The record is a 268-nucleotide RNA sequence from Christensenella hongkongensis, which matches "Bacterial large signal recognition particle RNA" in Rfam. A reference for the family is Regalia et al. (2002), "Prediction of signal recognition particle RNA genes", Nucleic Acids Res.

RNA sequence: CCGUACUAGACGGGGAGUUAGCGGUGUCCUGUAACCCGCAAGCCGCUAUAGCGGGGUUGAAUCCCAUGCGGAGGGUUUUCUUUGUAGGGUAUGGAGUACAUUACUUGGCGUUGAGGGAUGGGUCCUGUGCAAUGUUGCGUUGUGAACCCUGUCAGGUCCUGACGGAAGCAGCAGUAAGCAAAUUGCAGCGUGUGCCGCAGGUUCGCCUGUUCUGAGUCAAUGAUGUAAAUUCCUCUUAUGAGGCCAAAAUUCGAUGUAUGGUGUACGG
Numbered sequence: 001c002c003g004u005a006c007u008a009g010a011c012g013g014g015g016a017g018u019u020a021g022c023g024g025u026g027u028c029c030u031g032u033a034a035c036c037c038g039c040a041a042g043c044c045g046c047u048a049u050a051g052c053g054g055g056g057u058u059g060a061a062u063c064c065c066a067u068g069c070g071g072a073g074g075g076u077u078u079u080c081u082u083u084g085u086a087g088g089g090u091a092u093g094g095a096g097u098a099c100a101u102u103a104c105u106u107g108g109c110g111u112u113g114a115g116g117g118a119u120g121g122g123u124c125c126u127g128u129g130c131a132a133u134g135u136u137g138c139g140u141u142g143u144g145a146a147c148c149c150u151g152u153c154a155g156g157u158c159c160u161g162a163c164g165g166a167a168g169c170a171g172c173a174g175u176a177a178g179c180a181a182a183u184u185g186c187a188g189c190g191u192g193u194g195c196c197g198c199a200g201g202u203u204c205g206c207c208u209g210u211u212c213u214g215a216g217u218c219a220a221u222g223a224u225g226u227a228a229a230u231u232c233c234u235c236u237u238a239u240g241a242g243g244c245c246a247a248a249a250u251u252c253g254a255u256g257u258a259u260g261g262u263g264u265a266c267g268g
Stems, first nucleotide, its partner, number of pairs: 001268006009058003012030004017025003035055005064261007073252005080243009093230001097227006106220001107218003115213009124201006130192002133190005140181004149174004157166003
About the family: The signal recognition particle (SRP) is a universally conserved ribonucleoprotein involved in the co-translational targeting of proteins to membranes. Its family is annotated with SRP-dependent cotranslational protein targeting to membrane, signal sequence recognition and signal recognition particle, plasma membrane targeting in the Gene Ontology. Rfam classes the family as a non-coding RNA gene.